[Rfam]
RNA sequence: CCCAGUGACACGGGGUGCCGCGACCGCGCGGCUGAGAUCACACCCGUCGAACCUGAUCUAGUUCGGACUAGCGAAGGGAUGUCGCGAUGCAGACGC
Numbered sequence: 001c002c003c004a005g006u007g008a009c010a011c012g013g014g015g016u017g018c019c020g021c022g023a024c025c026g027c028g029c030g031g032c033u034g035a036g037a038u039c040a041c042a043c044c045c046g047u048c049g050a051a052c053c054u055g056a057u058c059u060a061g062u063u064c065g066g067a068c069u070a071g072c073g074a075a076g077g078g079a080u081g082u083c084g085c086g087a088u089g090c091a092g093a094c095g096c
Stems, first nucleotide, its partner, number of pairs: 006084005011046004016040001017032005052077003058071004
Shown here is a 96-nucleotide RNA sequence from Agromyces archimandritae, a member of the family "TPP riboswitch aptamer (THI element)". Lineage of the source: Bacteria > Actinomycetota > Actinomycetes > Microbacteriaceae > Agromyces. The match comes from Rfam's covariance-model search (68 bits). Pairs were carried over by alignment from the consensus structure, which is taken from published work.